This 100-nucleotide RNA sequence from Mesobacillus selenatarsenatis belongs to the Rfam family "Guanidine-I riboswitch aptamer". About the family: This family represents a conserved RNA structure found upstream of the ykkC and yxkD genes in Bacillus subtilis and related genes in other bacteria.
RNA sequence: UAAAAAGUCCUCUAGGGUUCCGCGGCGCUUAUGCUGGACUGGUCCGAGAGAGGGCGCACAGGGAUGCCUGUGUACACGGAGGGACAAAAACCCGGGAGAU
Numbered sequence: 001u002a003a004a005a006a007g008u009c010c011u012c013u014a015g016g017g018u019u020c021c022g023c024g025g026c027g028c029u030u031a032u033g034c035u036g037g038a039c040u041g042g043u044c045c046g047a048g049a050g051a052g053g054g055c056g057c058a059c060a061g062g063g064a065u066g067c068c069u070g071u072g073u074a075c076a077c078g079g080a081g082g083g084a085c086a087a088a089a090a091c092c093c094g095g096g097a098g099a100u
Base pairs, nucleotide, nucleotide: 007055008054009053010052011051012050015045016044020042021041022039023036024035025034026033027032056073057072058071059070060069061068062067075095077098081093082092083091
It scores 88 bits against the family's covariance model.
For this family Rfam cites "Structural basis for guanidine sensing by the ykkC family of riboswitches" (Battaglia et al., RNA, 2017).